Description: The record is a 118-nucleotide RNA from Pullulanibacillus pueri, which matches "ylbH leader" in Rfam. Taxonomically the source falls in Pullulanibacillus (Bacteria, Bacillati, Bacillota, Sporolactobacillaceae). Pairs were carried over by alignment from the consensus structure. From the family's description: This family is a putative regulatory RNA structure that is found upstream of the ylbH gene in B. subtilis and related low GC Gram-positive bacteria. A search with the family's covariance model found it, with a score of 77 bits.

RNA sequence: UUUAAAAAAACCCGCAGGAAAAUCCUGCGGGUGUCUCAUACAUACUGAGUAUGCUAAGACAAUGGGAGAGGAGAAACCGGCGGAAAAACUUAUGGGGAAACGUAAGUCUCCGCGGUUG
Numbered sequence: 001u002u003u004a005a006a007a008a009a010a011c012c013c014g015c016a017g018g019a020a021a022a023u024c025c026u027g028c029g030g031g032u033g034u035c036u037c038a039u040a041c042a043u044a045c046u047g048a049g050u051a052u053g054c055u056a057a058g059a060c061a062a063u064g065g066g067a068g069a070g071g072a073g074a075a076a077c078c079g080g081c082g083g084a085a086a087a088a089c090u091u092a093u094g095g096g097g098a099a100a101c102g103u104a105a106g107u108c109u110c111c112g113c114g115g116u117u118g
Stems, first nucleotide, its partner, number of pairs: 011031009035066005041053005078115001080113002083111001085109001088107005